The family of this 79-nucleotide RNA from Lytechinus variegatus is "mir-4847 microRNA precursor family". Lineage of the source: Eukaryota > Bilateria > Echinodermata > Temnopleuroida > Lytechinus. It is one of the family's seed sequences. Its family is annotated with RISC complex and miRNA-mediated post-transcriptional gene silencing in the Gene Ontology.
RNA sequence: UCACCUCAUAAUGAUGGCGCGGUGCGGUGCGAUGAAGAACUCAUAAAUUUCGCGCUCAUUCGCCAUCAUUUUAAGGUGU
Numbered sequence: 001u002c003a004c005c006u007c008a009u010a011a012u013g014a015u016g017g018c019g020c021g022g023u024g025c026g027g028u029g030c031g032a033u034g035a036a037g038a039a040c041u042c043a044u045a046a047a048u049u050u051c052g053c054g055c056u057c058a059u060u061c062g063c064c065a066u067c068a069u070u071u072u073a074a075g076g077u078g079u
Stems, first nucleotide, its partner, number of pairs: 002078005010070010021060004026056007